[Rfam]
RNA sequence: AAAGUCCUACCUGCUCUUGGUUUAACCAACUGAAGGGCAGUAGUGAACCCCACGUGCAUUUCCAGUAAUGGUAUGUAUGAAGCUGGGGGAAUCAUGGAUUCAGGCCGCGUUAUUGAGCCUCGAAAAUAACCUGGUCGUGGUCUGUUAAGAUAAUCAUUUGAUUGCCAAAUGGCCGUCAAGUGAAAAAGUCGACACUUUCAAAUGAGUGGAAGGCUAAAGUCUGGGGAUCGUUUUGGUUAGAUUCUCUGACACCACCGUGGUCUGAGAGCG
Dot-bracket structure: ...........(((((..(((([[[[.))))...))))).(.((...(((..(((((((..(((....))).)))))))......)))..)).)...................((.(((.((..............(((((..............................................(((..((((........))))...)))....(((.(((((((......]]]]))))))).)))))))))).)))).)......
Overview
Group II catalytic intron D1-D4-6: a 270-nucleotide sequence from Candidatus Magnetoglobus multicellularis. Taxonomically the source falls in Candidatus Magnetoglobus multicellularis (Bacteria, Desulfobacteria, Desulfobacterales, Desulfobacteraceae). The pairing is the family consensus, mapped onto this sequence. Its family is annotated with Group II intron splicing in the Gene Ontology.